[Rfam]
RNA sequence: UCGCAUCCGCUAAUCGGUUCAGCCGUGUUGCGGAAGGUUAAUUAACCAGCUUUAACCAGCUAAUGUUUCCCAAAGGGAAACGGAGGUCAGCG
Numbered sequence: 001u002c003g004c005a006u007c008c009g010c011u012a013a014u015c016g017g018u019u020c021a022g023c024c025g026u027g028u029u030g031c032g033g034a035a036g037g038u039u040a041a042u043u044a045a046c047c048a049g050c051u052u053u054a055a056c057c058a059g060c061u062a063a064u065g066u067u068u069c070c071c072a073a074a075g076g077g078a079a080a081c082g083g084a085g086g087u088c089a090g091c092g
Base pairs, nucleotide, nucleotide: 002092003091004090006034007033008032009031010030015025016024017023018022036057037056038055039054040053041052059087060086061085065081066080067079068078069077070076071075

Annotation:
This 92-nucleotide RNA sequence from Polaromonas naphthalenivorans belongs to the Rfam family "SucA RNA motif". The literature on the family includes a 2007 paper in Nucleic Acids Res by Weinberg et al., "Identification of 22 candidate structured RNAs in bacteria using the CMfinder comparative genomics pipeline". Rfam links the family to the GO term regulation of translation.